Shown here is a 92-nucleotide RNA sequence from Canis lupus, a member of the family "mir-340 microRNA precursor family".
The source organism's lineage runs through Eukaryota, Teleostomi, Mammalia, Canis and Canis lupus.
It is one of the family's seed sequences.
RNA sequence: UUGUACCUGAUGCGAUUAUAAAGCAAUGAGACUGAUUGUCAUGUGUCGGUUGUGGGAUCCGUCUCAGUUACUUUAUAGCCGUGCCUGGUACC
Dot-bracket structure: .....((.(.((((.((((((((...((((((.((((.(((((.......))))))))).))))))....)))))))).)))).).))....